[Rfam]
RNA sequence: ACAAAAAAAAGCCCGCACAUUCAUUGCGGGCAGCCCUUAUAGCUUGUAUCCGGUACAAACGAAGGGCAAUGGGAGAGGAGAAACCGGAGGAAGACUUAUGGGGAUGUAAGUCUUCUCCGCGG
Number, nucleotide and partner (000 for none) at each position: 001a000002c000003a000004a000005a000006a000007a000008a000009a000010a000011g031012c030013c029014c028015g027016c026017a025018c000019a000020u000021u000022c000023a000024u000025u017026g016027c015028g014029g013030g012031c011032a000033g000034c073035c072036c071037u000038u069039a000040u000041a000042g000043c000044u058045u057046g056047u055048a000049u000050c000051c000052g000053g000054u000055a047056c046057a045058a044059a000060c000061g000062a000063a000064g000065g000066g000067c000068a000069a038070u000071g036072g035073g034074a000075g000076a000077g000078g000079a000080g000081a000082a000083a000084c000085c119086g118087g117088a116089g000090g115091a114092a113093g112094a111095c110096u109097u108098a107099u000100g000101g000102g000103g000104a000105u000106g000107u098108a097109a096110g095111u094112c093113u092114u091115c090116u088117c087118c086119g085120c000121g000122g000
Shown here is a 122-nucleotide RNA from Fictibacillus macauensis, a member of the family "ylbH leader". It scores 73 bits against the family's covariance model. NCBI's taxonomy places the organism under Bacteria, Bacillota, Fictibacillaceae, Fictibacillus, Fictibacillus macauensis. This family is a putative regulatory RNA structure that is found upstream of the ylbH gene in B. subtilis and related low GC Gram-positive bacteria.